[Rfam]
A member of the RNA family "Bacterial large signal recognition particle RNA" from Clostridium argentinense, 266 nucleotides long. The match comes from Rfam's covariance-model search (220 bits). Rfam describes the family as follows. The signal recognition particle (SRP) is a universally conserved ribonucleoprotein involved in the co-translational targeting of proteins to membranes. Its Rfam clan is "SRP clan". For this family Rfam cites "SRPDB: Signal Recognition Particle Database" (Rosenblad et al., Nucleic Acids Res, 2003). By type it is a non-coding RNA gene.

RNA sequence: UUGUACUAGAUGGGGAGUUAGCGGUGCCCUGUAACCUGCAAUCCGCUAUAGCAGGAUUGAAUUCCUCGCCUAGGUUUUAGUUUGUGUGGUCUGGCCUAUGUAAGUGGCGUUGAGAAUUGGGUCCCACGCAAUGGAGAUUCAUGAACCUCGUCAGGUCCGGAAGGAAGCAGCGAUAAGUGAAACCCUCCAUGUGCCGUGGAUUAACCUGGUUUGAGUUAACUGCAUGGGUAACGCACAUAAAUUAAUUAUCAAAGCGAGGUGUACAA
Numbered sequence: 001u002u003g004u005a006c007u008a009g010a011u012g013g014g015g016a017g018u019u020a021g022c023g024g025u026g027c028c029c030u031g032u033a034a035c036c037u038g039c040a041a042u043c044c045g046c047u048a049u050a051g052c053a054g055g056a057u058u059g060a061a062u063u064c065c066u067c068g069c070c071u072a073g074g075u076u077u078u079a080g081u082u083u084g085u086g087u088g089g090u091c092u093g094g095c096c097u098a099u100g101u102a103a104g105u106g107g108c109g110u111u112g113a114g115a116a117u118u119g120g121g122u123c124c125c126a127c128g129c130a131a132u133g134g135a136g137a138u139u140c141a142u143g144a145a146c147c148u149c150g151u152c153a154g155g156u157c158c159g160g161a162a163g164g165a166a167g168c169a170g171c172g173a174u175a176a177g178u179g180a181a182a183c184c185c186u187c188c189a190u191g192u193g194c195c196g197u198g199g200a201u202u203a204a205c206c207u208g209g210u211u212u213g214a215g216u217u218a219a220c221u222g223c224a225u226g227g228g229u230a231a232c233g234c235a236c237a238u239a240a241a242u243u244a245a246u247u248a249u250c251a252a253a254g255c256g257a258g259g260u261g262u263a264c265a266a
Base pairs, nucleotide, nucleotide: 001266002265003264004263005262006261009058010057011056012030013029014028015027017025018024019023035055036054037053038052039051064259065258066257067256068255069254073250074249075248079243080242081241082240083239084238085237086236087235088234092230093229096227097226098225099224100223101222104220105219106217107216108215114212115211116210117209118208119207120206121205122204124199125198126197127196128195129191130190132189133188134187135186136185138181139180140179141178142177148173149172150171151170156165157164158163